MIR2593 microRNA precursor family: a 115-nucleotide sequence from Trifolium medium. It scores 96 bits against the family's covariance model. Gene Ontology terms of the family: RISC complex and miRNA-mediated post-transcriptional gene silencing.
RNA sequence: UUAUAAGAGACAGUUGACUUUUUAGAUUCAUUCAAUAAUUGAUGUAUUUGGGCUAUAAUAUAGACCAGAUACAUAAAUUAUUCAAUGAAUCUAAAAAGUGAAUUGUCUCUUAUAA
Numbered sequence: 001u002u003a004u005a006a007g008a009g010a011c012a013g014u015u016g017a018c019u020u021u022u023u024a025g026a027u028u029c030a031u032u033c034a035a036u037a038a039u040u041g042a043u044g045u046a047u048u049u050g051g052g053c054u055a056u057a058a059u060a061u062a063g064a065c066c067a068g069a070u071a072c073a074u075a076a077a078u079u080a081u082u083c084a085a086u087g088a089a090u091c092u093a094a095a096a097a098g099u100g101a102a103u104u105g106u107c108u109c110u111u112a113u114a115a
Stems, first nucleotide, its partner, number of pairs: 002114006009107005015101001017099009027089006034082007042074003049067003